[Rfam]
RNA sequence: AAAAAGGGCUUCUGCCGCUUGUGGCACAUGGGAAGUCCAUAAUGGGCUUCCUGUGCGGAAUCACUAUCAAGAGAUUUCGGAAGCAUAAUAUUUGUGACCUGUGGCUGUUAGUUGUCUCUUGCACUGACGCCCUA
Numbered sequence: 001a002a003a004a005a006g007g008g009c010u011u012c013u014g015c016c017g018c019u020u021g022u023g024g025c026a027c028a029u030g031g032g033a034a035g036u037c038c039a040u041a042a043u044g045g046g047c048u049u050c051c052u053g054u055g056c057g058g059a060a061u062c063a064c065u066a067u068c069a070a071g072a073g074a075u076u077u078c079g080g081a082a083g084c085a086u087a088a089u090a091u092u093u094g095u096g097a098c099c100u101g102u103g104g105c106u107g108u109u110a111g112u113u114g115u116c117u118c119u120u121g122c123a124c125u126g127a128c129g130c131c132c133u134a
Stems, first nucleotide, its partner, number of pairs: 008084005013026005027055012056079007103131003107128005113123003
A member of the RNA family "U11 spliceosomal RNA" from Strongylocentrotus purpuratus, 134 nucleotides long.
Taxonomically the source falls in Strongylocentrotus (Eukaryota, Metazoa, Deuterostomia, Echinidea).
Rfam's curators put it in the seed alignment.
The base pairs follow the family's consensus structure, which is taken from published work.
The literature on the family includes a 1988 paper in Proc Natl Acad Sci U S A by Montzka and Steitz, "Additional low-abundance human small nuclear ribonucleoproteins: U11, U12, etc".
By type it is a spliceosomal small nuclear RNA.